This 241-nucleotide RNA sequence belongs to the Rfam family "Voltage-gated potassium-channel Kv1.4 IRES". Rfam's curators put it in the seed alignment. Its family is annotated with ribosome binding in the Gene Ontology. Pairs were carried over by alignment from the consensus structure, which was predicted with RNAalifold. This family represents the Kv1.4 voltage-gated potassium-channel internal ribosome entry site (IRES).
[Rfam]
RNA sequence: UUUACUUGAAGUGCCAGGCCAUCUCUCUGGAGAGCAACGUUGAAUCCCUGAGAAGAGAGAGCAUGGGGCGUGCUGAUUUAAAAACAGAAAAUGCAAAGUUGGACUGAAAAAUAUCCUUCAUCUUCCAAGCAAUCUGCUUAAGGGUUCCAAACUUACCUUAAUUUGGUGAGAAAAGAAUCUGCCCUAUUUUUCUUUCUUCUUCUCCAACUGGAACCAGCCAUUUCCCCAAACCGCCACCAUG
Number, nucleotide and partner (000 for none) at each position: 001u000002u000003u000004a000005c000006u000007u000008g000009a000010a000011g000012u000013g000014c000015c000016a000017g000018g000019c000020c000021a000022u000023c000024u000025c000026u000027c000028u000029g225030g224031a223032g222033a221034g000035c000036a000037a000038c000039g000040u000041u000042g000043a000044a000045u000046c000047c000048c000049u000050g201051a200052g199053a198054a197055g196056a195057g194058a193059g192060a191061g190062c000063a187064u186065g185066g184067g183068g182069c181070g180071u000072g179073c000074u177075g000076a000077u174078u173079u172080a000081a000082a000083a000084a000085c136086a135087g134088a133089a000090a000091a000092u131093g130094c129095a000096a000097a000098g000099u128100u127101g126102g125103a124104c000105u000106g122107a121108a000109a000110a000111a000112u000113a000114u000115c000116c000117u000118u000119c000120a000121u107122c106123u000124u103125c102126c101127a100128a099129g094130c093131a092132a000133u088134c087135u086136g085137c000138u000139u000140a000141a000142g000143g000144g000145u000146u000147c000148c000149a000150a000151a000152c170153u169154u168155a167156c166157c165158u000159u000160a000161a000162u000163u000164u000165g157166g156167u155168g154169a153170g152171a000172a079173a078174a077175g000176a000177a074178u000179c072180u070181g069182c068183c067184c066185u065186a064187u063188u000189u000190u061191u060192c059193u058194u057195u056196c055197u054198u053199c052200u051201u050202c000203u000204c000205c000206a000207a000208c000209u000210g000211g000212a000213a000214c000215c000216a000217g000218c000219c000220a000221u033222u032223u031224c030225c029226c000227c000228a000229a000230a000231c000232c000233g000234c000235c000236a000237c000238c000239a000240u000241g000